RNA sequence: UCAAGAGAAACGCCCCAACGGCGCAUAUCGUCUGGUCCAGUCAUGGGAGGACGCGGUUCCCGGCGCGCGCAAGCGCGGCCCUGGUCUCGACACCGGAGCGGAACCCGGAUCAGGCACCUCAAAAUGCGAAGCGCGAGCUUCGCAUUUUUUU
Numbered sequence: 001u002c003a004a005g006a007g008a009a010a011c012g013c014c015c016c017a018a019c020g021g022c023g024c025a026u027a028u029c030g031u032c033u034g035g036u037c038c039a040g041u042c043a044u045g046g047g048a049g050g051a052c053g054c055g056g057u058u059c060c061c062g063g064c065g066c067g068c069g070c071a072a073g074c075g076c077g078g079c080c081c082u083g084g085u086c087u088c089g090a091c092a093c094c095g096g097a098g099c100g101g102a103a104c105c106c107g108g109a110u111c112a113g114g115c116a117c118c119u120c121a122a123a124a125u126g127c128g129a130a131g132c133g134c135g136a137g138c139u140u141c142g143c144a145u146u147u148u149u150u151u
Stems, first nucleotide, its partner, number of pairs: 003151004011023004031114004040052003055105005062080003065076003081096005125144008
Dot-bracket structure: ..((((....((((.....)))).......((((.....(((.......)))..(((((..((((((......))).)))(((((......)))))....))))).....))))..........((((((((....))))))))...))))

The family of this 151-nucleotide sequence from Aureimonas sp. Leaf324 is "Alphaproteobacterial sRNA ar9". By type it is a small RNA. Taxonomically the source falls in Aureimonas (Bacteria, Pseudomonadati, Pseudomonadota, Aurantimonadaceae).